A member of the RNA family "Small nucleolar RNA SNORA3/SNORA45 family" from Piliocolobus tephrosceles, 131 nucleotides long.
Its family is annotated with nucleolus and RNA processing in the Gene Ontology.
Lineage of the source: Eukaryota > Chordata > Gnathostomata > Euarchontoglires > Piliocolobus.
Its Rfam clan is "SNORA3 clan".
A reference for the family is Huttenhofer et al. (2001), "RNomics: an experimental approach that identifies 201 candidates for novel, small, non-messenger RNAs in mouse", EMBO J.
RNA sequence: CCUGAGACUAGGGUCACAUCCUAACACAGCUCACAGCUCUUCUCUAGUGUGCUGGAGUCCUCAGAAUCUACUGGUCUUGAUUCACUCAUGGGGGCAACCAGUGUCCCCUUAGUGUCCAGGCAGAAACAUAC
Numbered sequence: 001c002c003u004g005a006g007a008c009u010a011g012g013g014u015c016a017c018a019u020c021c022u023a024a025c026a027c028a029g030c031u032c033a034c035a036g037c038u039c040u041u042c043u044c045u046a047g048u049g050u051g052c053u054g055g056a057g058u059c060c061u062c063a064g065a066a067u068c069u070a071c072u073g074g075u076c077u078u079g080a081u082u083c084a085c086u087c088a089u090g091g092g093g094g095c096a097a098c099c100a101g102u103g104u105c106c107c108c109u110u111a112g113u114g115u116c117c118a119g120g121c122a123g124a125a126a127c128a129u130a131c
Base pairs, nucleotide, nucleotide: 002064003063004062005061006060007058008057009056012053013052015051016050017049018048019047023043026040071123072122073121075120076119077118079116083114084113085112086111088110090108091107092106093105094104095103